mir-2 microRNA precursor family: a 67-nucleotide RNA sequence. It scores 61 bits against the family's covariance model. Rfam links the family to the GO terms miRNA-mediated post-transcriptional gene silencing and RISC complex.
RNA sequence: CCUCCCGUCAGAGUGGUUGUGAUGUGGUUACUUGUACGCAUAUCACAGCCAGCUUUGAUGAGCGGUA
Numbered sequence: 001c002c003u004c005c006c007g008u009c010a011g012a013g014u015g016g017u018u019g020u021g022a023u024g025u026g027g028u029u030a031c032u033u034g035u036a037c038g039c040a041u042a043u044c045a046c047a048g049c050c051a052g053c054u055u056u057g058a059u060g061a062g063c064g065g066u067a
Stems, first nucleotide, its partner, number of pairs: 006060008014051009025042002